[Rfam]
Shown here is a 183-nucleotide RNA sequence, a member of the family "RT-16 RNA". The sequence is in the family's curated seed alignment. Rfam classes the family as a small RNA.
RNA sequence: UUCUGUCCUGGAGAAUGUUAUUUUUCCUUGAGCAAGAAAAAUAAAUUAGGACUACACGUCAAUUAAUUAGCACGUUAUUAAAAUUUAUUUUAAGUCAUAAAAUUCAACUUUGACAAUUAGUAGUUGAAAUAUUACGAAUUUUGAAAAAGUGGUGGUUUACUUUUAAUUAAUUGGCUACACAGG
Numbered sequence: 001u002u003c004u005g006u007c008c009u010g011g012a013g014a015a016u017g018u019u020a021u022u023u024u025u026c027c028u029u030g031a032g033c034a035a036g037a038a039a040a041a042u043a044a045a046u047u048a049g050g051a052c053u054a055c056a057c058g059u060c061a062a063u064u065a066a067u068u069a070g071c072a073c074g075u076u077a078u079u080a081a082a083a084u085u086u087a088u089u090u091u092a093a094g095u096c097a098u099a100a101a102a103u104u105c106a107a108c109u110u111u112g113a114c115a116a117u118u119a120g121u122a123g124u125u126g127a128a129a130u131a132u133u134a135c136g137a138a139u140u141u142u143g144a145a146a147a148a149g150u151g152g153u154g155g156u157u158u159a160c161u162u163u164u165a166a167u168u169a170a171u172u173g174g175c176u177a178c179a180c181a182g183g
Stems, first nucleotide, its partner, number of pairs: 001038004005033001006031002010027006058175010072162001074160002077157001079155001107150005114143003123135002